A member of the RNA family "mir-210 microRNA precursor family" from Xenopus laevis, 99 nucleotides long. The family has 26 seed sequences and 790 matches in Rfam 15.1. The source organism's lineage runs through Eukaryota, Bilateria, Batrachia, Xenopus and Xenopus. On this family, see Cai et al., Proc Natl Acad Sci U S A 2005: "Kaposi's sarcoma-associated herpesvirus expresses an array of viral microRNAs in latently infected cells". It scores 73 bits against the family's covariance model.
[Rfam]
RNA sequence: UCCAGAUGUAGGUGAGCCACUGACUAACGCACAUUGCGCUGCUGCUAAAAUGCCACUGUGCGUGUGACAGCGGCUAACCGGCAUCUAGGAAUAACGUGA
Numbered sequence: 001u002c003c004a005g006a007u008g009u010a011g012g013u014g015a016g017c018c019a020c021u022g023a024c025u026a027a028c029g030c031a032c033a034u035u036g037c038g039c040u041g042c043u044g045c046u047a048a049a050a051u052g053c054c055a056c057u058g059u060g061c062g063u064g065u066g067a068c069a070g071c072g073g074c075u076a077a078c079c080g081g082c083a084u085c086u087a088g089g090a091a092u093a094a095c096g097u098g099a
Base pairs, nucleotide, nucleotide: 005085006084007083008082009081011079012078015075016074017073018072020070021069022068024066025064026063028062029061030060031059032058033057035055036054